[Rfam]
RNA sequence: GCUGGCUGAAUACUAUGUUCUUUUUAUCGAUAGUUUAUAUAGCCAGAUACUAAGCAAAAAAAAAAAAAAAAAAAAGGGAGCUGUCAUCCAUUUAAAGUGGUUCUGAUGGUAUGCUAAGCUUUUUUUCAUAGCGUAUCAUUACUAAGGGGAAAUACAGAU
Dot-bracket structure: (((((.......((((((..................)))))).......))).))...............................(.(.((((.........(((((((((((((............))))))))))))).)))).)..)........
The family of this 159-nucleotide RNA sequence from Hipposideros armiger is "Small nucleolar RNA SNORA15". About the family: ACA15 is a member of the H/ACA class of snoRNA that guide the sites of modification of uridines to pseudouridines. Lineage of the source: Eukaryota > Craniata > Vertebrata > Laurasiatheria > Hipposideros. For this family Rfam cites "RNomics: an experimental approach that identifies 201 candidates for novel, small, non-messenger RNAs in mouse" (Huttenhofer et al., EMBO J, 2001). By type it is an H/ACA-box small nucleolar RNA.